The record is a 119-nucleotide sequence from Peribacillus psychrosaccharolyticus, which matches "PyrR binding site" in Rfam. Taxonomically the source falls in Peribacillus (Bacteria, Bacillati, Bacillota, Caryophanales). It scores 80 bits against the family's covariance model. About the family: This family represents the PyrR binding site and terminator structure. This RNA structure is found upstream of a variety of genes involved in pyrimidine biosynthesis and transport. The alignment also includes a portion of the antiterminator structure. The family's RNA type in Rfam is cis-regulatory element.
RNA sequence: AAGCCCUUUUAAAAACAGUCCAGAGAGGCUGACAAAGGGAGAAAAUCUAUUAAGAACAGUCAUGAAUUGGUCUUAAUAGGUGACCCUCUUUGUUAAACAAACGAAGAGGGUUUUUUUCA
Numbered sequence: 001a002a003g004c005c006c007u008u009u010u011a012a013a014a015a016c017a018g019u020c021c022a023g024a025g026a027g028g029c030u031g032a033c034a035a036a037g038g039g040a041g042a043a044a045a046u047c048u049a050u051u052a053a054g055a056a057c058a059g060u061c062a063u064g065a066a067u068u069g070g071u072c073u074u075a076a077u078a079g080g081u082g083a084c085c086c087u088c089u090u091u092g093u094u095a096a097a098c099a100a101a102c103g104a105a106g107a108g109g110g111u112u113u114u115u116u117u118c119a
Stems, first nucleotide, its partner, number of pairs: 004039006016031005047079009057069004080114001082112012